[Rfam]
Nucleotides: 080
Stems, first nucleotide, its partner, number of pairs: 002048007021035005
Number, partner (000 for none) and nucleotide at each position: 001000c002048c003047g004046g005045u006044c007043g008042a009000g010000a011000g012000g013000c014000g015000c016000u017000g018000c019000g020000a021035c022034g023033g024032a025031c026000u027000c028000c029000u030000u031025g032024u033023c034022c035021g036000c037000c038000a039000c040000g041000c042008u043007c044006g045005g046004c047003c048002g049000c050000g051000g052000g053000c054000c055000a056000a057000a058000a059000g060000a061000c062000g063000u064000a065000a066000g067000g068000g069000c070000g071000c072000c073000u074000c075000c076000u077000u078000a079000a080000g
Rfam assigns this 80-nucleotide RNA sequence from Actinoplanes digitatis to the family "SAH (S-adenosyl-L-homocysteine) riboswitch aptamer". It scores 37 bits against the family's covariance model. The family's consensus secondary structure is taken from published work.